[Rfam]
RNA sequence: AAAGCAGACCGUCUUAUCGCUCUAAUUUAUUUAGAGAGGAAAGUCCGGACACCACAGAGUAGCAUAGCGGAUAACAUCCGUCAUUCAUAUUACACAUUGAAUAGGACAAGUGCAACAGAAAGCAAGUACAGUUAGGCUGUAGUGAAACCAGGUAAACUCUAUGCGGUGCAAUGCCAUGUAAAUUGGAGUUUGAGAGUUACUCGCUCGAUUUCAAAGGGUAGGCAGUUUGAACUAUUGAGUAAUUGAUAGUCUAGAUAAAUGAUAAGAAUCCUAUAAGGAUACAGAAUCCGGCUUAUAGGUCUGCUAUUUUU
Numbered sequence: 001a002a003a004g005c006a007g008a009c010c011g012u013c014u015u016a017u018c019g020c021u022c023u024a025a026u027u028u029a030u031u032u033a034g035a036g037a038g039g040a041a042a043g044u045c046c047g048g049a050c051a052c053c054a055c056a057g058a059g060u061a062g063c064a065u066a067g068c069g070g071a072u073a074a075c076a077u078c079c080g081u082c083a084u085u086c087a088u089a090u091u092a093c094a095c096a097u098u099g100a101a102u103a104g105g106a107c108a109a110g111u112g113c114a115a116c117a118g119a120a121a122g123c124a125a126g127u128a129c130a131g132u133u134a135g136g137c138u139g140u141a142g143u144g145a146a147a148c149c150a151g152g153u154a155a156a157c158u159c160u161a162u163g164c165g166g167u168g169c170a171a172u173g174c175c176a177u178g179u180a181a182a183u184u185g186g187a188g189u190u191u192g193a194g195a196g197u198u199a200c201u202c203g204c205u206c207g208a209u210u211u212c213a214a215a216g217g218g219u220a221g222g223c224a225g226u227u228u229g230a231a232c233u234a235u236u237g238a239g240u241a242a243u244u245g246a247u248a249g250u251c252u253a254g255a256u257a258a259a260u261g262a263u264a265a266g267a268a269u270c271c272u273a274u275a276a277g278g279a280u281a282c283a284g285a286a287u288c289c290g291g292c293u294u295a296u297a298g299g300u301c302u303g304c305u306a307u308u309u310u311u
Base pairs, nucleotide, nucleotide: 001307003305004304005303006302007301008300009299010298011296012267013266014265015264016263017262018261020036021035022034023033024032025031041294042293043292045291046290047289048288049287050168051167052166053165057202058201059200060199062164063163064162065161066160067081068080069079070078071077082104083102084101085100086099105159106158110157111156112153113152127141128140129139130138131137132136172224173223174222175221183214184213185212186211187210194206195205196204197203231250232249233248234247235246236245237244238243
RNA: Bacterial RNase P class A
Organism: Urechidicola croceus